[Rfam]
RNA sequence: CCAGGUGUAAGCUCGUUCCAGGGAUCACAAUCAGGUAGAAUAUUCUUACCUCGUCUAAUCCUUGGGAAGGUCUGAGACAAAGGCCGUGUGGACGUUCGAAAUGGAUGCCUGUGUAAAAACAGGGGGUCGAUUACCAGAAACGGUUCUUGUAUCGGCUGUGCAAAGGACGACAUCGCUUCACCGGGGGCUGUGUUUGAUGCGUUACACCGAUUCAUAGCUUGAAAAGGGUCCCUGGCCAGCUUCAGAAAGCUCAAUGAACGAGGCGGAGGCAAAGGACUUGUCCAACCUUCGUAACUCAAUUCAGACUACUCUACAUCUGG
Numbered sequence: 001c002c003a004g005g006u007g008u009a010a011g012c013u014c015g016u017u018c019c020a021g022g023g024a025u026c027a028c029a030a031u032c033a034g035g036u037a038g039a040a041u042a043u044u045c046u047u048a049c050c051u052c053g054u055c056u057a058a059u060c061c062u063u064g065g066g067a068a069g070g071u072c073u074g075a076g077a078c079a080a081a082g083g084c085c086g087u088g089u090g091g092a093c094g095u096u097c098g099a100a101a102u103g104g105a106u107g108c109c110u111g112u113g114u115a116a117a118a119a120c121a122g123g124g125g126g127u128c129g130a131u132u133a134c135c136a137g138a139a140a141c142g143g144u145u146c147u148u149g150u151a152u153c154g155g156c157u158g159u160g161c162a163a164a165g166g167a168c169g170a171c172a173u174c175g176c177u178u179c180a181c182c183g184g185g186g187g188c189u190g191u192g193u194u195u196g197a198u199g200c201g202u203u204a205c206a207c208c209g210a211u212u213c214a215u216a217g218c219u220u221g222a223a224a225a226g227g228g229u230c231c232c233u234g235g236c237c238a239g240c241u242u243c244a245g246a247a248a249g250c251u252c253a254a255u256g257a258a259c260g261a262g263g264c265g266g267a268g269g270c271a272a273a274g275g276a277c278u279u280g281u282c283c284a285a286c287c288u289u290c291g292u293a294a295c296u297c298a299a300u301u302c303a304g305a306c307u308a309c310u311c312u313a314c315a316u317c318u319g320g
Stems, first nucleotide, its partner, number of pairs: 001320004007314003012262007020063005033051005038045001072304005082237004093107005108123005124233003129230004146217002263292007
RNA: Nuclear RNase P